RNA sequence: ACAAUUUUUUACUUACAUAAAUCUAAUCUGUUCUUAUCAGCUUAAUCUCUGGUAUAUAGUCUAUUUGACUAUUUUGAGAUUAAUCAAUUUUUUGGGACCUGGUUAGAGUUCGGAGCUUGCUCCGCUCUAACACGGGUGGCCCGGUCUUGCACUUACCUCCGGGAACGGCCCACUCUCC
Numbered sequence: 001a002c003a004a005u006u007u008u009u010u011a012c013u014u015a016c017a018u019a020a021a022u023c024u025a026a027u028c029u030g031u032u033c034u035u036a037u038c039a040g041c042u043u044a045a046u047c048u049c050u051g052g053u054a055u056a057u058a059g060u061c062u063a064u065u066u067g068a069c070u071a072u073u074u075u076g077a078g079a080u081u082a083a084u085c086a087a088u089u090u091u092u093u094g095g096g097a098c099c100u101g102g103u104u105a106g107a108g109u110u111c112g113g114a115g116c117u118u119g120c121u122c123c124g125c126u127c128u129a130a131c132a133c134g135g136g137u138g139g140c141c142c143g144g145u146c147u148u149g150c151a152c153u154u155a156c157c158u159c160c161g162g163g164a165a166c167g168g169c170c171c172a173c174u175c176u177c178c
Base pairs, nucleotide, nucleotide: 003014004013006011035054036053037052038051039050040049056072057071058070059069060068061067102131103130104129105128106127107126108125109124112123113122114121115120134171135170136169137168139166140163141162142161143160144159

This 178-nucleotide sequence from Steinernema carpocapsae belongs to the Rfam family "U2 spliceosomal RNA". It scores 98 bits against the family's covariance model.